[Rfam]
RNA sequence: GGUGGAGUCAGUGGAGGCAGCGGUUCAUCGACCCCUUCUUGCGAUUUGUACUGAUUCGUAUCACAAAAACACGAACCGGUCGAUAAACCUCUGCAUCCAGCGCUCUCUCU
Numbered sequence: 001g002g003u004g005g006a007g008u009c010a011g012u013g014g015a016g017g018c019a020g021c022g023g024u025u026c027a028u029c030g031a032c033c034c035c036u037u038c039u040u041g042c043g044a045u046u047u048g049u050a051c052u053g054a055u056u057c058g059u060a061u062c063a064c065a066a067a068a069a070c071a072c073g074a075a076c077c078g079g080u081c082g083a084u085a086a087a088c089c090u091c092u093g094c095a096u097c098c099a100g101c102g103c104u105c106u107c108u109c110u
Stems, first nucleotide, its partner, number of pairs: 013098003018093003022089004027084007036075003